[Rfam]
RNA sequence: UGCCAUUUCAUCUUGGCACUGGGAGAAUUCACAGUCGAUUACAUAAUAUUCUGUGGUUCUGCGGGUGCCAAAAUGUAAUGUGU
Numbered sequence: 001u002g003c004c005a006u007u008u009c010a011u012c013u014u015g016g017c018a019c020u021g022g023g024a025g026a027a028u029u030c031a032c033a034g035u036c037g038a039u040u041a042c043a044u045a046a047u048a049u050u051c052u053g054u055g056g057u058u059c060u061g062c063g064g065g066u067g068c069c070a071a072a073a074u075g076u077a078a079u080g081u082g083u
Stems, first nucleotide, its partner, number of pairs: 004080004009075002013071006020064001022062001023060001025059003029056006
Dot-bracket structure: ...((((.((..((((((.(.((.(((.((((((................)))))))))).).).))))))..)).))))...
RNA: mir-263 microRNA precursor family